[Rfam]
Nucleotides: 061
Base pairs, nucleotide, nucleotide: 001059002058003057004056005055009048010047011046012045013044021043022042023041029036030035
Number, partner (000 for none) and nucleotide at each position: 001059a002058c003057u004056g005055u006000g007000g008000a009048g010047c011046g012045u013044c014000a015000a016000a017000c018000a019000a020000a021043c022042c023041c024000a025000a026000g027000u028000a029036g030035u031000u032000a033000c034000g035030a036029c037000g038000a039000a040000c041023g042022g043021g044013g045012a046011c047010g048009c049000u050000g051000u052000g053000a054000a055005g056004c057003a058002g059001u060000a061000a